The record is a 237-nucleotide sequence from Candidatus Accumulibacter cognatus, which matches "Group II catalytic intron D1-D4-6" in Rfam. Rfam's curators write: Group II introns are found in rRNA, tRNA and mRNA of organelles in fungi, plants and protists, and also in mRNA in bacteria.
[Rfam]
RNA sequence: GAAGUCCCGUCCGGGGAGUUGUCCGUACGCCCCGCGGUAGCAUGAGGAAGCGGCGUCGUGGUGACGCGGGGUCGUGAGUUUUCAAGCAGCAAGGGAGCAGGCCGUAACGCAAGUGAACCUAUGAGUAGCCUCGUAAAUUAUGCGGAGAAGCCGACCCUGUGGCCAGAAGGGGAAGGCCGUUGGAUGGACGCUGGAAUAACGGAAGUGGCGUCAAUCGACUCCCGGGGUAGCAGGGAU
Numbered sequence: 001g002a003a004g005u006c007c008c009g010u011c012c013g014g015g016g017a018g019u020u021g022u023c024c025g026u027a028c029g030c031c032c033c034g035c036g037g038u039a040g041c042a043u044g045a046g047g048a049a050g051c052g053g054c055g056u057c058g059u060g061g062u063g064a065c066g067c068g069g070g071g072u073c074g075u076g077a078g079u080u081u082u083c084a085a086g087c088a089g090c091a092a093g094g095g096a097g098c099a100g101g102c103c104g105u106a107a108c109g110c111a112a113g114u115g116a117a118c119c120u121a122u123g124a125g126u127a128g129c130c131u132c133g134u135a136a137a138u139u140a141u142g143c144g145g146a147g148a149a150g151c152c153g154a155c156c157c158u159g160u161g162g163c164c165a166g167a168a169g170g171g172g173a174a175g176g177c178c179g180u181u182g183g184a185u186g187g188a189c190g191c192u193g194g195a196a197u198a199a200c201g202g203a204a205g206u207g208g209c210g211u212c213a214a215u216c217g218a219c220u221c222c223c224g225g226g227g228u229a230g231c232a233g234g235g236a237u
Stems, first nucleotide, its partner, number of pairs: 012034005019025001022204001038089001040087002046083002048080002050075005056069005125231001126229001128228006144222004150177003155171004183216003187212006